The record is a 137-nucleotide sequence from Diaphorobacter aerolatus, which matches "radC RNA" in Rfam. The match comes from Rfam's covariance-model search (87 bits).
[Rfam]
RNA sequence: AAGCUGCUCGCAUGUUCGCUGAUUCGUCAGCACAUGCCAGCAGCCAGGGUUUCAGGCUGCCGCGGGGUUCUCUCCGCCCAACCCACCAGUCCGCAUCGCAUCCAUUGCGCGGACGCGCGUUCCCAAGACGCUGAUGC
Numbered sequence: 001a002a003g004c005u006g007c008u009c010g011c012a013u014g015u016u017c018g019c020u021g022a023u024u025c026g027u028c029a030g031c032a033c034a035u036g037c038c039a040g041c042a043g044c045c046a047g048g049g050u051u052u053c054a055g056g057c058u059g060c061c062g063c064g065g066g067g068u069u070c071u072c073u074c075c076g077c078c079c080a081a082c083c084c085a086c087c088a089g090u091c092c093g094c095a096u097c098g099c100a101u102c103c104a105u106u107g108c109g110c111g112g113a114c115g116c117g118c119g120u121u122c123c124c125a126a127g128a129c130g131c132u133g134a135u136g137c
Stems, first nucleotide, its partner, number of pairs: 011036005018031005040060006048082001050080001062077006109137003117131005